[Rfam]
A member of the RNA family "Alphaproteobacteria transfer-messenger RNA" from Pelagibacterium lacus, 353 nucleotides long. Rfam classes the family as a non-coding RNA gene. Rfam describes the family as follows. Bacterial tmRNA, also known as 10Sa RNA or SsrA, is named for its dual tRNA and mRNA-like properties. Its role is to liberate the mRNA from a stalled ribosome. To accomplish this part of the tmRNA is used as a reading frame that ends in a translation stop signal. The broken mRNA is replaced in the ribosome by the tmRNA and translation of the tmRNA leads to addition of a proteolysis tag to the incomplete protein enabling recognition by a protease. The source organism's lineage runs through Bacteria, Pseudomonadota, Alphaproteobacteria, Hyphomicrobiales and Pelagibacterium.
RNA sequence: GCCCUUUAUUUCUCCGCCACGCCCUCCUAUAUUAGGCGUGCUGGCAACGGCUAUGGCGAUAAACUGUCAUCGUAAUAAACCCAUCGGACCCGGGGGCAGUACCCGGCGCCUCCACCAAAACCCUCUUUUUCCAGAGGACCUUAUGGGGGCGAAACAGGAUCGACGAGGGCGUAAAGGGUGAGCUUUCGCUCGGCAUUGUACCACCGUUAUCGGGCUAACCUUAUAGUUGCAAACGACAACUAUGCUGAGGCACGUCUCGCUGCGUAAGCAGUGCGAUACCUCGAACUAAAGCCCUGAUUCUGUAGCAGGGAUCAGGCGGGGUCCGCAGGCACCUGGCAACAGAAGCCUGCAUC
Numbered sequence: 001g002c003c004c005u006u007u008a009u010u011u012c013u014c015c016g017c018c019a020c021g022c023c024c025u026c027c028u029a030u031a032u033u034a035g036g037c038g039u040g041c042u043g044g045c046a047a048c049g050g051c052u053a054u055g056g057c058g059a060u061a062a063a064c065u066g067u068c069a070u071c072g073u074a075a076u077a078a079a080c081c082c083a084u085c086g087g088a089c090c091c092g093g094g095g096g097c098a099g100u101a102c103c104c105g106g107c108g109c110c111u112c113c114a115c116c117a118a119a120a121c122c123c124u125c126u127u128u129u130u131c132c133a134g135a136g137g138a139c140c141u142u143a144u145g146g147g148g149g150c151g152a153a154a155c156a157g158g159a160u161c162g163a164c165g166a167g168g169g170c171g172u173a174a175a176g177g178g179u180g181a182g183c184u185u186u187c188g189c190u191c192g193g194c195a196u197u198g199u200a201c202c203a204c205c206g207u208u209a210u211c212g213g214g215c216u217a218a219c220c221u222u223a224u225a226g227u228u229g230c231a232a233a234c235g236a237c238a239a240c241u242a243u244g245c246u247g248a249g250g251c252a253c254g255u256c257u258c259g260c261u262g263c264g265u266a267a268g269c270a271g272u273g274c275g276a277u278a279c280c281u282c283g284a285a286c287u288a289a290a291g292c293c294c295u296g297a298u299u300c301u302g303u304a305g306c307a308g309g310g311a312u313c314a315g316g317c318g319g320g321g322u323c324c325g326c327a328g329g330c331a332c333c334u335g336g337c338a339a340c341a342g343a344a345g346c347c348u349g350c351a352u353c
Base pairs, nucleotide, nucleotide: 040051041050042049043048055190056189057188058187059186067181068180069179070178071177080169081168082167084166085165086164090106091105092104093103094102107151108150109149110148111147112146113145191206192205193204196217198215201213202212319334320333321332322331325350326349327348328347329346330345

The base pairs follow the family's consensus structure, which is taken from published work. On this family, see Felden et al., RNA 1997: "Probing the structure of the Escherichia coli 10Sa RNA (tmRNA)".